Shown here is a 90-nucleotide RNA sequence from Vigna radiata, a member of the family "Small nucleolar RNA snoR27".
Pairs were carried over by alignment from the consensus structure, which was predicted with WAR.
The match comes from Rfam's covariance-model search (80 bits).
It is annotated as a C/D-box small nucleolar RNA.
Taxonomically the source falls in Vigna radiata (Eukaryota, Embryophyta, Tracheophyta, Euphyllophyta).
RNA sequence: UAUGGAUCCGUGAUGUUAUUAUUAGACUGCGUUAUCUAUCUGAAACUUCCUUCAGGAAUUGAAGAUAACCAUUACUUGCUGAGAUCCAUG
Numbered sequence: 001u002a003u004g005g006a007u008c009c010g011u012g013a014u015g016u017u018a019u020u021a022u023u024a025g026a027c028u029g030c031g032u033u034a035u036c037u038a039u040c041u042g043a044a045a046c047u048u049c050c051u052u053c054a055g056g057a058a059u060u061g062a063a064g065a066u067a068a069c070c071a072u073u074a075c076u077u078g079c080u081g082a083g084a085u086c087c088a089u090g
Stems, first nucleotide, its partner, number of pairs: 001090007